A member of the RNA family "Group II catalytic intron D1-D4-6" from Desulfobacter latus, 255 nucleotides long. The match comes from Rfam's covariance-model search (101 bits). Rfam's curators write: Group II introns are found in rRNA, tRNA and mRNA of organelles in fungi, plants and protists, and also in mRNA in bacteria.
[Rfam]
RNA sequence: AAAGUCCCACCUGACCAAAGCUUAGCAGGCAGGUCAGUAGAGAAAUCCACAGGCAAGCCCGGAGACGGGUGUCUGAAGCUGGAUGGAUCAAGAUUGCAGGCUCUGUAUUGAGCCCCGAAAAAUGUAUAGUUGUGGUCAUUGGAUAAACCCGCAGAGUACGGCGGGGGAAAGCCGACGUUUUCGAGCAAACGGAAGGCAGCAAACCUUAAGCUCGCUACAGCAAGAGUUCAAGGUUACCACCGGGGUCUGAGACCA
Numbered sequence: 001a002a003a004g005u006c007c008c009a010c011c012u013g014a015c016c017a018a019a020g021c022u023u024a025g026c027a028g029g030c031a032g033g034u035c036a037g038u039a040g041a042g043a044a045a046u047c048c049a050c051a052g053g054c055a056a057g058c059c060c061g062g063a064g065a066c067g068g069g070u071g072u073c074u075g076a077a078g079c080u081g082g083a084u085g086g087a088u089c090a091a092g093a094u095u096g097c098a099g100g101c102u103c104u105g106u107a108u109u110g111a112g113c114c115c116c117g118a119a120a121a122a123u124g125u126a127u128a129g130u131u132g133u134g135g136u137c138a139u140u141g142g143a144u145a146a147a148c149c150c151g152c153a154g155a156g157u158a159c160g161g162c163g164g165g166g167g168a169a170a171g172c173c174g175a176c177g178u179u180u181u182c183g184a185g186c187a188a189a190c191g192g193a194a195g196g197c198a199g200c201a202a203a204c205c206u207u208a209a210g211c212u213c214g215c216u217a218c219a220g221c222a223a224g225a226g227u228u229c230a231a232g233g234u235u236a237c238c239a240c241c242g243g244g245g246u247c248u249g250a251g252a253c254c255a
Stems, first nucleotide, its partner, number of pairs: 012036005020030003023223001025221002038091001040089002045084003050075005057070005109249001110247001112246006132240005171197003176191004202234001204232001206230001209228005